Background:
This 60-nucleotide sequence from Paraburkholderia sp. BL10I2N1 belongs to the Rfam family "Betaproteobacteria toxic small RNA". The organism belongs to Paraburkholderia, within Bacteria. A search with the family's covariance model found it, with a score of 68 bits. Overexpression in amino aid rich medium attenuates growth, suggesting role in repressing amino acid intake and metabolism. Rfam 15.1 lists 951 matches to the family in 508 species. For this family Rfam cites "Identification of small RNAs abundant in Burkholderia cenocepacia biofilms reveal putative regulators with a potential role in carbon and iron metabolism" (Sass et al., Sci Rep, 2017).
RNA sequence: CGUCUCCUCCAUGUCUCCUCCUGAUAUGGAUUCAGCCCGCCACUGCGCGGGCUUUUUUCU
Numbered sequence: 001c002g003u004c005u006c007c008u009c010c011a012u013g014u015c016u017c018c019u020c021c022u023g024a025u026a027u028g029g030a031u032u033c034a035g036c037c038c039g040c041c042a043c044u045g046c047g048c049g050g051g052c053u054u055u056u057u058u059c060u
Stems, first nucleotide, its partner, number of pairs: 008030008034053007